[Rfam]
Shown here is a 422-nucleotide sequence from Orycteropus afer, a member of the family "Small Cajal body-specific RNA 2". The organism belongs to Orycteropus afer, within Eukaryota. On this family, see Tycowski et al., Curr Biol 2004: "Guide RNAs with 5' caps and novel box C/D snoRNA-like domains for modification of snRNAs in metazoa". It scores 378 bits against the family's covariance model. Rfam links the family to the GO terms RNA processing and nucleolus. The family's consensus secondary structure is taken from published work.
RNA sequence: UUAUACGGGAGGUAGAGUGGUCUGGGGUUGGGGUGUUCUCAGUAGUGCUGCUGUGUCGCGUGAAAGUUGCGUGCGUGCGGGUGAGUGAGUGAGUGUACGCAAAAGUGUGAGUGGGCGCGCGUGGGGAGUGUAAGAUGAGUGCAUGCGCCCGCCCCUGUACCCCUCUCCCCGCCUACACCUUGAUCUUAUUUGAUCGGGUCGUGACCCCAGCCCCGCCGGGCCAACCCGAAGUGAUAUAUUCCCCUCCUGCGAAGCUCUUCGGGGCGCUGUGCAGCGAGGCCCCAUUGGCGGUGGCAACGCUGCGGUCCCCUAGGUCCCGUACAAGGUCUGACGGGGCCCGGCGCUCAGAAAUGAUGAAUUGAUCAGAUAGACGAGGCCUGGCUUGUCCCAGGCCGCUGAUUAUCGAGGCGAUUCUGAUCUGA
Numbered sequence: 001u002u003a004u005a006c007g008g009g010a011g012g013u014a015g016a017g018u019g020g021u022c023u024g025g026g027g028u029u030g031g032g033g034u035g036u037u038c039u040c041a042g043u044a045g046u047g048c049u050g051c052u053g054u055g056u057c058g059c060g061u062g063a064a065a066g067u068u069g070c071g072u073g074c075g076u077g078c079g080g081g082u083g084a085g086u087g088a089g090u091g092a093g094u095g096u097a098c099g100c101a102a103a104a105g106u107g108u109g110a111g112u113g114g115g116c117g118c119g120c121g122u123g124g125g126g127a128g129u130g131u132a133a134g135a136u137g138a139g140u141g142c143a144u145g146c147g148c149c150c151g152c153c154c155c156u157g158u159a160c161c162c163c164u165c166u167c168c169c170c171g172c173c174u175a176c177a178c179c180u181u182g183a184u185c186u187u188a189u190u191u192g193a194u195c196g197g198g199u200c201g202u203g204a205c206c207c208c209a210g211c212c213c214c215g216c217c218g219g220g221c222c223a224a225c226c227c228g229a230a231g232u233g234a235u236a237u238a239u240u241c242c243c244c245u246c247c248u249g250c251g252a253a254g255c256u257c258u259u260c261g262g263g264g265c266g267c268u269g270u271g272c273a274g275c276g277a278g279g280c281c282c283c284a285u286u287g288g289c290g291g292u293g294g295c296a297a298c299g300c301u302g303c304g305g306u307c308c309c310c311u312a313g314g315u316c317c318c319g320u321a322c323a324a325g326g327u328c329u330g331a332c333g334g335g336g337c338c339c340g341g342c343g344c345u346c347a348g349a350a351a352u353g354a355u356g357a358a359u360u361g362a363u364c365a366g367a368u369a370g371a372c373g374a375g376g377c378c379u380g381g382c383u384u385g386u387c388c389c390a391g392g393c394c395g396c397u398g399a400u401u402a403u404c405g406a407g408g409c410g411a412u413u414c415u416g417a418u419c420u421g422a
Stems, first nucleotide, its partner, number of pairs: 053160004057073006093108001095106002111148003117142004122137002190236001194229004199224001201222001203221001206220003210216002257314003261310004266306003271303002274300003279295003282291002325339002327336003346421004356414006375394004380389002